[Rfam]
RNA sequence: AGUCUCCUGCCGUGUUCGCGAUUGUCAUAUAUUCCUUGAACCAUUUUUGUGCAUAGGCUGCGGAAUUUCGUUCGAUGGGCGUGAUCAUCGCUAGUCCGAUGAACCCGAAAUUGAACUAACUGUGGCCAACUUGAACCUCGUGGUUCAGGAUGCCGGCAAAGCGGCACAGGCGGGUCUUUA
Numbered sequence: 001a002g003u004c005u006c007c008u009g010c011c012g013u014g015u016u017c018g019c020g021a022u023u024g025u026c027a028u029a030u031a032u033u034c035c036u037u038g039a040a041c042c043a044u045u046u047u048u049g050u051g052c053a054u055a056g057g058c059u060g061c062g063g064a065a066u067u068u069c070g071u072u073c074g075a076u077g078g079g080c081g082u083g084a085u086c087a088u089c090g091c092u093a094g095u096c097c098g099a100u101g102a103a104c105c106c107g108a109a110a111u112u113g114a115a116c117u118a119a120c121u122g123u124g125g126c127c128a129a130c131u132u133g134a135a136c137c138u139c140g141u142g143g144u145u146c147a148g149g150a151u152g153c154c155g156g157c158a159a160a161g162c163g164g165c166a167c168a169g170g171c172g173g174g175u176c177u178u179u180a
Stems, first nucleotide, its partner, number of pairs: 002178001006174006012167004017163003033150003037147006056127003060123004070116007081104002086101005
RNA: 6S / SsrS RNA